Shown here is a 76-nucleotide sequence from Scleropages formosus, a member of the family "mir-19 microRNA precursor family". Its Rfam clan is "mir-19 clan". The family has 106 seed sequences and 2,337 matches in Rfam 15.1. Its family is annotated with miRNA-mediated post-transcriptional gene silencing and RISC complex in the Gene Ontology. Lineage of the source: Eukaryota > Deuterostomia > Teleostomi > Euteleostomi > Scleropages.

RNA sequence: GUCUCUGGUCAGUUUUGCUGGUUUGCAUGCAGCUGUGACUUUUGCUGUGCAAAUCCAUGCAAAACUGACUGUAGCA
Numbered sequence: 001g002u003c004u005c006u007g008g009u010c011a012g013u014u015u016u017g018c019u020g021g022u023u024u025g026c027a028u029g030c031a032g033c034u035g036u037g038a039c040u041u042u043u044g045c046u047g048u049g050c051a052a053a054u055c056c057a058u059g060c061a062a063a064a065c066u067g068a069c070u071g072u073a074g075c076a
Base pairs, nucleotide, nucleotide: 003074004073006071007070008069009068010067011066012065013064014063015062016061017060018059020056021055022053023052024051025050026049027048028047031046032045033044